The record is a 105-nucleotide RNA sequence from Pseudomonas putida, which matches "Pseudomonas rnk leader" in Rfam. Lineage of the source: Bacteria > Pseudomonadati > Pseudomonadales > Pseudomonadaceae > Pseudomonas putida. It is one of the family's seed sequences. Rfam links the family to the GO term regulation of gene expression. On this family, see Naville and Gautheret, Genome Biol 2010: "Premature terminator analysis sheds light on a hidden world of bacterial transcriptional attenuation".
RNA sequence: CGCGCAGGCUUGAGUAUUUGCCCGGCUGUGGUAGUGUCGGGUUAUGCGUCGGUGACGCCAAAGCACUCAUCAAACCCCGCCCUCUGGGCGGGGUUUUGCUUUAUC
Numbered sequence: 001c002g003c004g005c006a007g008g009c010u011u012g013a014g015u016a017u018u019u020g021c022c023c024g025g026c027u028g029u030g031g032u033a034g035u036g037u038c039g040g041g042u043u044a045u046g047c048g049u050c051g052g053u054g055a056c057g058c059c060a061a062a063g064c065a066c067u068c069a070u071c072a073a074a075c076c077c078c079g080c081c082c083u084c085u086g087g088g089c090g091g092g093g094u095u096u097u098g099c100u101u102u103a104u105c
Stems, first nucleotide, its partner, number of pairs: 002053002006049001018034005072096011